RNA sequence: UUGGCUUAAACUCAAUGAGUAAGGAAACUAACGCCCUACCUGACAAGUAGGGCUGCCUGUUGGAUCGAGUGAUCCAUGGGUUUCUAAUAUUUGACGGAGGUGGAAUGGCCGUCAUUUUAGGAACCCGCUACUUUUAGGGUGACUAAAAAGGGGGCCGGUCCCCGC
Numbered sequence: 001u002u003g004g005c006u007u008a009a010a011c012u013c014a015a016u017g018a019g020u021a022a023g024g025a026a027a028c029u030a031a032c033g034c035c036c037u038a039c040c041u042g043a044c045a046a047g048u049a050g051g052g053c054u055g056c057c058u059g060u061u062g063g064a065u066c067g068a069g070u071g072a073u074c075c076a077u078g079g080g081u082u083u084c085u086a087a088u089a090u091u092u093g094a095c096g097g098a099g100g101u102g103g104a105a106u107g108g109c110c111g112u113c114a115u116u117u118u119a120g121g122a123a124c125c126c127g128c129u130a131c132u133u134u135u136a137g138g139g140u141g142a143c144u145a146a147a148a149a150g151g152g153g154g155c156c157g158g159u160c161c162c163c164g165c
Stems, first nucleotide, its partner, number of pairs: 005023004033053007055081006100165004107160005113154001115149002117146004123140004

U12 minor spliceosomal RNA: a 165-nucleotide sequence from Phytophthora sojae. The source organism's lineage runs through Eukaryota, Oomycota, Peronosporomycetes, Peronosporales and Phytophthora. The sequence is in the family's curated seed alignment. By type it is a spliceosomal small nuclear RNA.